[Rfam]
RNA sequence: AAUCUGUUUCAGGGCGAGGCGAAAUUCCUCACUGGCGGUGAUAAGCGUAUGCUGCGAGUCCGCGAGCUCUGCGCGUCAGGGCAGAAUGGGUGGGAACCCCAUACCAACGGUAUAGUCCGGAUGAAAGAAACAAAAA
Number, nucleotide and partner (000 for none) at each position: 001a000002a000003u134004c000005u132006g131007u130008u129009u128010c127011a000012g000013g000014g000015c000016g000017a029018g028019g027020c000021g000022a000023a000024a000025u000026u000027c019028c018029u017030c000031a116032c115033u106034g105035g063036c062037g061038g060039u000040g000041a000042u000043a000044a000045g000046c000047g000048u000049a000050u000051g000052c000053u000054g000055c000056g000057a000058g104059u103060c038061c037062g036063c035064g000065a000066g082067c081068u080069c000070u000071g000072c000073g000074c000075g000076u000077c000078a000079g000080g068081g067082c066083a000084g000085a000086a102087u101088g100089g099090g098091u000092g000093g000094g000095a000096a000097c000098c090099c089100c088101a087102u086103a059104c058105c034106a033107a000108c119109g118110g117111u000112a000113u000114a000115g032116u031117c110118c109119g108120g000121a000122u000123g000124a000125a000126a000127g010128a009129a008130a007131c006132a005133a000134a003135a000136a000
Shown here is a 136-nucleotide RNA from Clostridium sp. CAG:299, a member of the family "FMN riboswitch aptamer (RFN element)". The source organism's lineage runs through Bacteria, Bacillati, Clostridia, Clostridiaceae and Clostridium. The match comes from Rfam's covariance-model search (106 bits).